[Rfam]
RNA: Plastid-ycf2 5UTR RNA
RNA sequence: UGGCGUGUAGGAAUUGAACCUACGAAUUCGCCAAUUAUGAGUUGGGUGCUUUAACCAUUCAGCCAUGGAUGC
Numbered sequence: 001u002g003g004c005g006u007g008u009a010g011g012a013a014u015u016g017a018a019c020c021u022a023c024g025a026a027u028u029c030g031c032c033a034a035u036u037a038u039g040a041g042u043u044g045g046g047u048g049c050u051u052u053a054a055c056c057a058u059u060c061a062g063c064c065a066u067g068g069a070u071g072c
Stems, first nucleotide, its partner, number of pairs: 003072004007023005037066003041063008